[Rfam]
A member of the RNA family "mir-548 microRNA precursor family" from Cebus imitator, 84 nucleotides long.
RNA sequence: UAUUAGGUUGGUGCAAAAGUAACUGCAGUUUUUGCCACUGACAGUAAUGGCAAAAACUGCAGUUACUUUUGCGCCAACAUAAUA
Numbered sequence: 001u002a003u004u005a006g007g008u009u010g011g012u013g014c015a016a017a018a019g020u021a022a023c024u025g026c027a028g029u030u031u032u033u034g035c036c037a038c039u040g041a042c043a044g045u046a047a048u049g050g051c052a053a054a055a056a057c058u059g060c061a062g063u064u065a066c067u068u069u070u071g072c073g074c075c076a077a078c079a080u081a082a083u084a
Stems, first nucleotide, its partner, number of pairs: 001084005007078031039046002
The source organism's lineage runs through Eukaryota, Gnathostomata, Euteleostomi, Theria and Cebus. The family's consensus secondary structure was predicted with WAR. The match comes from Rfam's covariance-model search (92 bits).